Shown here is a 122-nucleotide RNA sequence from Nonlabens sp. MB-3u-79, a member of the family "SAM riboswitch aptamer (S box leader)".

RNA sequence: AAAUUAUCAAGAAAGGACGAGGGAUCAGACCCAUCGACUCCUUAGCAACCCUUUAUUUAUCUCAACAAUAAAUGAAGAAGGUGCUAAUUUCUGCUCACAGCUUUUGUGAGACUAGAUGAUGC
Numbered sequence: 001a002a003a004u005u006a007u008c009a010a011g012a013a014a015g016g017a018c019g020a021g022g023g024a025u026c027a028g029a030c031c032c033a034u035c036g037a038c039u040c041c042u043u044a045g046c047a048a049c050c051c052u053u054u055a056u057u058u059a060u061c062u063c064a065a066c067a068a069u070a071a072a073u074g075a076a077g078a079a080g081g082u083g084c085u086a087a088u089u090u091c092u093g094c095u096c097a098c099a100g101c102u103u104u105u106g107u108g109a110g111a112c113u114a115g116a117u118g119a120u121g122c
Stems, first nucleotide, its partner, number of pairs: 003120006013043005021032003026093004044085004049081002051077010089114001094110006

A search with the family's covariance model found it, with a score of 74 bits. Lineage of the source: Bacteria > Pseudomonadati > Bacteroidota > Flavobacteriales > Nonlabens.